Notes: The record is an 80-nucleotide sequence from Robbsia andropogonis, which matches "Proteo-phage-1 RNA" in Rfam.

RNA sequence: CCGCGGCCGGUGUUUUUCCGAAGUGAUGUGAUCAGCGGAUUAGUCGGUGAGUGCCGCUCGCAGAAAAAACCCCGACAGCC
Numbered sequence: 001c002c003g004c005g006g007c008c009g010g011u012g013u014u015u016u017u018c019c020g021a022a023g024u025g026a027u028g029u030g031a032u033c034a035g036c037g038g039a040u041u042a043g044u045c046g047g048u049g050a051g052u053g054c055c056g057c058u059c060g061c062a063g064a065a066a067a068a069a070c071c072c073c074g075a076c077a078g079c080c
Base pairs, nucleotide, nucleotide: 002012003011004010007030014023015022016021034058035057036056037055038054043076044075045074046073047072

The family's consensus secondary structure is taken from published work.